[Rfam]
RNA sequence: UAAGACCUUCAGGGAUAGGUGAAAUUCCUUACCGGCGGUAUGGCCAUGCCGAGCCCGCGAGCCCUUUGGGGCAGAUCCGGUGAAAAGCCGGAGCCGACAGUAAAAGUCUGGAUGGGAGAAGGUUGUU
Numbered sequence: 001u002a003a004g005a006c007c008u009u010c011a012g013g014g015a016u017a018g019g020u021g022a023a024a025u026u027c028c029u030u031a032c033c034g035g036c037g038g039u040a041u042g043g044c045c046a047u048g049c050c051g052a053g054c055c056c057g058c059g060a061g062c063c064c065u066u067u068g069g070g071g072c073a074g075a076u077c078c079g080g081u082g083a084a085a086a087g088c089c090g091g092a093g094c095c096g097a098c099a100g101u102a103a104a105a106g107u108c109u110g111g112a113u114g115g116g117a118g119a120a121g122g123u124u125g126u127u
Base pairs, nucleotide, nucleotide: 004124005123006122007121008120009119010118017029018028019027031107032106033096034095035058036057037056038055053094054093061072062071063070076092077091078090079089080088098110099109100108
A member of the RNA family "FMN riboswitch aptamer (RFN element)" from Desulforamulus hydrothermalis, 127 nucleotides long. Pairs were carried over by alignment from the consensus structure, which is taken from published work.